[Rfam]
RNA sequence: GUACUGGCUCAGUCUAGUGGAUACUUAGCCUUGGAUGUACCAAAAUGCGACUGUCAUUUGAAUAUUAGUGGGUUCGAACCCCACAGGUGCCACUGACGCUACCCAGUACUUUU
Numbered sequence: 001g002u003a004c005u006g007g008c009u010c011a012g013u014c015u016a017g018u019g020g021a022u023a024c025u026u027a028g029c030c031u032u033g034g035a036u037g038u039a040c041c042a043a044a045a046u047g048c049g050a051c052u053g054u055c056a057u058u059u060g061a062a063u064a065u066u067a068g069u070g071g072g073u074u075c076g077a078a079c080c081c082c083a084c085a086g087g088u089g090c091c092a093c094u095g096a097c098g099c100u101a102c103c104c105a106g107u108a109c110u111u112u113u
Stems, first nucleotide, its partner, number of pairs: 002108006012097003017093004025078002028075001
Background: Shown here is a 113-nucleotide RNA sequence from Mizuhopecten yessoensis, a member of the family "Vault RNA". Pairs were carried over by alignment from the consensus structure, which is taken from published work. Rfam classes the family as a non-coding RNA gene. The match comes from Rfam's covariance-model search (42 bits). This family of RNAs are found as part of the enigmatic vault ribonucleoprotein complex. The source organism's lineage runs through Eukaryota, Bilateria, Mollusca, Bivalvia and Mizuhopecten.